[Rfam]
RNA sequence: UUGCAGUGAUGACUACUUAGGACACCUUUGGAUGAGCCAUGAAAACAACCAGUUAACUCUGAGCAAC
Numbered sequence: 001u002u003g004c005a006g007u008g009a010u011g012a013c014u015a016c017u018u019a020g021g022a023c024a025c026c027u028u029u030g031g032a033u034g035a036g037c038c039a040u041g042a043a044a045a046c047a048a049c050c051a052g053u054u055a056a057c058u059c060u061g062a063g064c065a066a067c
Base pairs, nucleotide, nucleotide: 001066002065003064004063